[Rfam]
RNA sequence: CCUCCUGUGAUGAGGUAUCUCUAUGACUUUCGUUCUUCUGAGCGUGCUGAAGCCAGAGAUUUCAGUCUGAGAAGG
Numbered sequence: 001c002c003u004c005c006u007g008u009g010a011u012g013a014g015g016u017a018u019c020u021c022u023a024u025g026a027c028u029u030u031c032g033u034u035c036u037u038c039u040g041a042g043c044g045u046g047c048u049g050a051a052g053c054c055a056g057a058g059a060u061u062u063c064a065g066u067c068u069g070a071g072a073a074g075g
Stems, first nucleotide, its partner, number of pairs: 001075003005071001
Shown here is a 75-nucleotide sequence from Apteryx australis, a member of the family "Small nucleolar RNA SNORD59". By type it is a C/D-box small nucleolar RNA. Taxonomically the source falls in Apteryx (Eukaryota, Deuterostomia, Aves, Palaeognathae). A search with the family's covariance model found it, with a score of 68 bits. On this family, see Galardi et al., Mol Cell Biol 2002: "Purified box C/D snoRNPs are able to reproduce site-specific 2'-O-methylation of target RNA in vitro".